Bacterial large signal recognition particle RNA: a 266-nucleotide sequence from Listeria fleischmannii.
Rfam describes the family as follows. The signal recognition particle (SRP) is a universally conserved ribonucleoprotein involved in the co-translational targeting of proteins to membranes.
A reference for the family is Rosenblad et al. (2003), "SRPDB: Signal Recognition Particle Database", Nucleic Acids Res.
Rfam links the family to the GO terms SRP-dependent cotranslational protein targeting to membrane, signal sequence recognition and signal recognition particle, plasma membrane targeting.
The family's RNA type in Rfam is non-coding RNA gene.
It scores 217 bits against the family's covariance model.
The base pairs follow the family's consensus structure, which is taken from published work.
NCBI's taxonomy places the organism under Bacteria, Bacillati, Bacillota, Listeriaceae, Listeria fleischmannii.

[Rfam]
RNA sequence: CCGUGCUAGACGGGGAGAUAGCGGCGCCCUGUAACCCGCAAUCCGCUCUAGCGGGGUUGAAUUCCCAAAUUGAGGCUUAUACCUGUCUGGUCUGCCGCCAGCACGUGGUGUUGACGAUUGGGUCUUGCGCAAUGGAAGCCUGUGAACCAUGUCAGGUCCGGAAGGAAGCAGCAUUAAGCAGUGCCUUUUAUGUGCCGCAAGGUUGCCUGAUCUGAGCUAACGACUGGUGUAACGCAGGUGGUUAUAUGUCGAACUUGGGUGCACGG
Numbered sequence: 001c002c003g004u005g006c007u008a009g010a011c012g013g014g015g016a017g018a019u020a021g022c023g024g025c026g027c028c029c030u031g032u033a034a035c036c037c038g039c040a041a042u043c044c045g046c047u048c049u050a051g052c053g054g055g056g057u058u059g060a061a062u063u064c065c066c067a068a069a070u071u072g073a074g075g076c077u078u079a080u081a082c083c084u085g086u087c088u089g090g091u092c093u094g095c096c097g098c099c100a101g102c103a104c105g106u107g108g109u110g111u112u113g114a115c116g117a118u119u120g121g122g123u124c125u126u127g128c129g130c131a132a133u134g135g136a137a138g139c140c141u142g143u144g145a146a147c148c149a150u151g152u153c154a155g156g157u158c159c160g161g162a163a164g165g166a167a168g169c170a171g172c173a174u175u176a177a178g179c180a181g182u183g184c185c186u187u188u189u190a191u192g193u194g195c196c197g198c199a200a201g202g203u204u205g206c207c208u209g210a211u212c213u214g215a216g217c218u219a220a221c222g223a224c225u226g227g228u229g230u231a232a233c234g235c236a237g238g239u240g241g242u243u244a245u246a247u248g249u250c251g252a253a254c255u256u257g258g259g260u261g262c263a264c265g266g
Stems, first nucleotide, its partner, number of pairs: 001266006009058003012030004017025001019023001035055005064259003068256002071253001074250003078246001080244002083241007093231002097228005105221002107218003116212008124201006130192002133190005140181004149174004157166003